[Rfam]
RNA sequence: CAGGUCGUAAUUAGCAGCGCACAACAUUCGUCGGCGAUAAUUAAUGACGUUGGUCACGUUGGUUUCAUGUCGAUUUCAUUUCAUGACACGGCCG
Numbered sequence: 001c002a003g004g005u006c007g008u009a010a011u012u013a014g015c016a017g018c019g020c021a022c023a024a025c026a027u028u029c030g031u032c033g034g035c036g037a038u039a040a041u042u043a044a045u046g047a048c049g050u051u052g053g054u055c056a057c058g059u060u061g062g063u064u065u066c067a068u069g070u071c072g073a074u075u076u077c078a079u080u081u082c083a084u085g086a087c088a089c090g091g092c093c094g
Base pairs, nucleotide, nucleotide: 001090004087005086006085007084008083013080014079017076019074024070025069026068027067030063031062032061033060034059035058036057045056046055047054048053